[Rfam]
Shown here is an 81-nucleotide RNA sequence from Scleropages formosus, a member of the family "mir-130 microRNA precursor family". NCBI's taxonomy places the organism under Eukaryota, Eumetazoa, Gnathostomata, Actinopterygii, Scleropages. The base pairs follow the family's consensus structure, which was predicted with PFOLD.
RNA sequence: GGCUGCCCGGAACUCUUUCCCUGUUGCACUACUGUGGGAACUCGCGCUAGCAGUGCAAUAACGAAAGGGCAUCGGCCAGCU
Dot-bracket structure: (((.(.((((..(((((((..(((((((((.....................)))))))))..)))))))..)))))..)))
Numbered sequence: 001g002g003c004u005g006c007c008c009g010g011a012a013c014u015c016u017u018u019c020c021c022u023g024u025u026g027c028a029c030u031a032c033u034g035u036g037g038g039a040a041c042u043c044g045c046g047c048u049a050g051c052a053g054u055g056c057a058a059u060a061a062c063g064a065a066a067g068g069g070c071a072u073c074g075g076c077c078a079g080c081u
Stems, first nucleotide, its partner, number of pairs: 001081003005076001007075004013069007022060009